[Rfam]
RNA sequence: AUCUUUGUGCUUGGGACAUUGAUGCAGCUAGUAAGGUUUUGACCGAGGCUUGUCUAUUGCUGGUUGAGAACUAUUUCCAAACCUCCUCUUAGGCCUGGGUUUGGCAAGGCCUUUGAGAAUUUCUGGAGGGACUCCCUUUGGGGA
Numbered sequence: 001a002u003c004u005u006u007g008u009g010c011u012u013g014g015g016a017c018a019u020u021g022a023u024g025c026a027g028c029u030a031g032u033a034a035g036g037u038u039u040u041g042a043c044c045g046a047g048g049c050u051u052g053u054c055u056a057u058u059g060c061u062g063g064u065u066g067a068g069a070a071c072u073a074u075u076u077c078c079a080a081a082c083c084u085c086c087u088c089u090u091a092g093g094c095c096u097g098g099g100u101u102u103g104g105c106a107a108g109g110c111c112u113u114u115g116a117g118a119a120u121u122u123c124u125g126g127a128g129g130g131a132c133u134c135c136c137u138u139u140g141g142g143g144a
Stems, first nucleotide, its partner, number of pairs: 021054004027049003035044003086117003091112006098105001133144004
RNA: U4 spliceosomal RNA
Organism: Cajanus cajan